[Rfam]
RNA sequence: CGGUCGGCAGUUCACCAAGGCGUCGCCGCCCCGACGAGGGGAGCUAAACCUGCCG
Numbered sequence: 001c002g003g004u005c006g007g008c009a010g011u012u013c014a015c016c017a018a019g020g021c022g023u024c025g026c027c028g029c030c031c032c033g034a035c036g037a038g039g040g041g042a043g044c045u046a047a048a049c050c051u052g053c054c055g
Stems, first nucleotide, its partner, number of pairs: 002016003029041004

Annotation
A member of the RNA family "COG3860 RNA" from Azospirillum sp. TSO22-1, 55 nucleotides long. The source organism's lineage runs through Bacteria, Pseudomonadati, Pseudomonadota, Azospirillaceae and Azospirillum. It scores 71 bits against the family's covariance model. The family's consensus secondary structure is taken from published work.